This 278-nucleotide RNA from Paramaledivibacter caminithermalis belongs to the Rfam family "T-box leader".
From the family's description: Uncharged tRNA acts as the effector for transcription antitermination of genes in the T-box leader family. T-boxes are found upstream of many aminoacyl-tRNA synthetase genes and some amino acid biosynthetic genes usually in Gram-positive bacteria. The anticodon of a specific tRNA base pairs to a specifier sequence within the T-box motif, and the NCCA acceptor tail of the tRNA base pairs to a conserved bulge in the T-box antiterminator hairpin.
It is annotated as a cis-regulatory leader.
RNA sequence: GAAUCAGCUAUGAAGGAGAAAAGUAGGAUAAAUGCUAUUUACAGAGAGGAAAUGCCAUAGGCUGAGAGCGUUUCUAUAUACAGGUUUAUCCGAAGUUCACUCUAGAGCUAUAAGGCUGAAAUUUAGUAGGCUUUAUCGGAUGACAUCGUUAUAAUGUCCAAGAGAGGUUAGGUAUAUAUAUUUACCUUUUUCUAUAUUUUUUAUAGGUAUUAAAGGAGUAAAUAUAUUCAUAGCUUAUCAAAUAGGGUGGUACCGCGAUUAUAACCUUCGUCCCUAGU
Numbered sequence: 001g002a003a004u005c006a007g008c009u010a011u012g013a014a015g016g017a018g019a020a021a022a023g024u025a026g027g028a029u030a031a032a033u034g035c036u037a038u039u040u041a042c043a044g045a046g047a048g049g050a051a052a053u054g055c056c057a058u059a060g061g062c063u064g065a066g067a068g069c070g071u072u073u074c075u076a077u078a079u080a081c082a083g084g085u086u087u088a089u090c091c092g093a094a095g096u097u098c099a100c101u102c103u104a105g106a107g108c109u110a111u112a113a114g115g116c117u118g119a120a121a122u123u124u125a126g127u128a129g130g131c132u133u134u135a136u137c138g139g140a141u142g143a144c145a146u147c148g149u150u151a152u153a154a155u156g157u158c159c160a161a162g163a164g165a166g167g168u169u170a171g172g173u174a175u176a177u178a179u180a181u182u183u184a185c186c187u188u189u190u191u192c193u194a195u196a197u198u199u200u201u202u203a204u205a206g207g208u209a210u211u212a213a214a215g216g217a218g219u220a221a222a223u224a225u226a227u228u229c230a231u232a233g234c235u236u237a238u239c240a241a242a243u244a245g246g247g248u249g250g251u252a253c254c255g256c257g258a259u260u261a262u263a264a265c266c267u268u269c270g271u272c273c274c275u276a277g278u
Stems, first nucleotide, its partner, number of pairs: 007108002015103004026091006039076001048075008111135007137148003167239001169237005244275004255271004